[Rfam]
RNA sequence: UUCCCUGAGGGGCGCUGCGACGGGUUUUCCCGCUAGGCUCAGGGUCAUCCACUUCUUUUUAGUACAACGGCGCUCAUCAUUA
Numbered sequence: 001u002u003c004c005c006u007g008a009g010g011g012g013c014g015c016u017g018c019g020a021c022g023g024g025u026u027u028u029c030c031c032g033c034u035a036g037g038c039u040c041a042g043g044g045u046c047a048u049c050c051a052c053u054u055c056u057u058u059u060u061a062g063u064a065c066a067a068c069g070g071c072g073c074u075c076a077u078c079a080u081u082a
Stems, first nucleotide, its partner, number of pairs: 003044006021032004
Dot-bracket structure: ..((((((............((((....))))......))))))......................................

Background
The record is an 82-nucleotide RNA from Neopusillimonas aestuarii, which matches "SAH (S-adenosyl-L-homocysteine) riboswitch aptamer" in Rfam. The family's consensus secondary structure is taken from published work. A reference for the family is Wang et al. (2008), "Riboswitches that sense S-adenosylhomocysteine and activate genes involved in coenzyme recycling", Mol Cell. A search with the family's covariance model found it, with a score of 59 bits. The source organism's lineage runs through Bacteria, Pseudomonadota, Betaproteobacteria, Burkholderiales and Neopusillimonas.